[Rfam]
RNA sequence: CGGGUUUAUUCGCUCUUCGGCGCAGUCGGGGUUUGUUUUUCGAAGCAUGCGCUAAAUGUUCUCCUGGCGCGUCCUGAAGCCGCAGGUGUUUCCUCCCUUGCCUGCGGUGAUGCGCCCGCCUUGCCUCGCUCGCUGCACCAGCUGAGCGGGGCAUCUU
Dot-bracket structure: .................................................................((((((((........(((((((..........)))))))...))))))))......(((((((((((.......)).))))))))).....

Background
A member of the RNA family "Rhizobiales sRNA Atu_C7" from Rhizobium sp. JAB6, 157 nucleotides long. The source organism's lineage runs through Bacteria, Pseudomonadati, Pseudomonadota, Hyphomicrobiales and Rhizobium. It scores 69 bits against the family's covariance model. A reference for the family is Wilms et al. (2012), "Deep sequencing uncovers numerous small RNAs on all four replicons of the plant pathogen Agrobacterium tumefaciens", RNA Biol. The family's consensus secondary structure was predicted with WAR.